[Rfam]
RNA sequence: UUCCAUCUUCGGGGCAGGGUGAAAUUCCCGACCGGCGGUGAUGAAUGCAGCCCGCAUUCUCAGUCCGUGACCCGUGAGGCUUUGCCGAGCGGUGGACCUGGUGCAACUCCGGGACCGACAGUGACAGUCUGGAUGGGAGAAGAUGUUG
Numbered sequence: 001u002u003c004c005a006u007c008u009u010c011g012g013g014g015c016a017g018g019g020u021g022a023a024a025u026u027c028c029c030g031a032c033c034g035g036c037g038g039u040g041a042u043g044a045a046u047g048c049a050g051c052c053c054g055c056a057u058u059c060u061c062a063g064u065c066c067g068u069g070a071c072c073c074g075u076g077a078g079g080c081u082u083u084g085c086c087g088a089g090c091g092g093u094g095g096a097c098c099u100g101g102u103g104c105a106a107c108u109c110c111g112g113g114a115c116c117g118a119c120a121g122u123g124a125c126a127g128u129c130u131g132g133a134u135g136g137g138a139g140a141a142g143a144u145g146u147u148g
Stems, first nucleotide, its partner, number of pairs: 004145007017029003031128002033117002035068004063115002072092002097113005119131003
This 148-nucleotide RNA from Thalassobacillus cyri belongs to the Rfam family "FMN riboswitch aptamer (RFN element)". The family's consensus secondary structure is taken from published work. Taxonomically the source falls in Thalassobacillus (Bacteria, Bacillati, Bacillota, Bacillaceae).